This 113-nucleotide sequence from Oceanobacillus picturae belongs to the Rfam family "SAM riboswitch aptamer (S box leader)". The source organism's lineage runs through Bacteria, Bacillati, Bacillota, Bacillaceae and Oceanobacillus. Its family is annotated with regulation of gene expression in the Gene Ontology.
RNA sequence: CUCUUAUCUUGAGCGGUGGAGGGACUGGCCCUGUGAAACCGCGGCAACCUUCAACUAUUUUAAUAGUUGAAAGGUGCCAAUUCCUGCAAAGUGAAAACUUUGACAGAUGAGAG
Dot-bracket structure: ((((((((....(((((...(((.[.[[)))......)))))((((.(((((((((........))))))).))))))...(]].]((((((....))))))..)))))))))